[Rfam]
RNA sequence: UCAAGCAUAAAUGAUCUCCUUCGUAUAUGCUCGUGAAUAAGGCGCGAGUGUCUCUACCAGAUCACCGUAAAUGAUCCGACUAUGAAGGUGGAUUUCCACGGG
Numbered sequence: 001u002c003a004a005g006c007a008u009a010a011a012u013g014a015u016c017u018c019c020u021u022c023g024u025a026u027a028u029g030c031u032c033g034u035g036a037a038u039a040a041g042g043c044g045c046g047a048g049u050g051u052c053u054c055u056a057c058c059a060g061a062u063c064a065c066c067g068u069a070a071a072u073g074a075u076c077c078g079a080c081u082a083u084g085a086a087g088g089u090g091g092a093u094u095u096c097c098a099c100g101g102g
Stems, first nucleotide, its partner, number of pairs: 018088008029049007058078001060076005

Rfam assigns this 102-nucleotide RNA sequence from Pullulanibacillus camelliae to the family "Purine riboswitch aptamer". The family's consensus secondary structure is taken from published work. NCBI's taxonomy places the organism under Bacteria, Bacillati, Bacillota, Sporolactobacillaceae, Pullulanibacillus. A reference for the family is Mandal et al. (2003), "Riboswitches Control Fundamental Biochemical Pathways in Bacillus subtilis and Other Bacteria", Cell.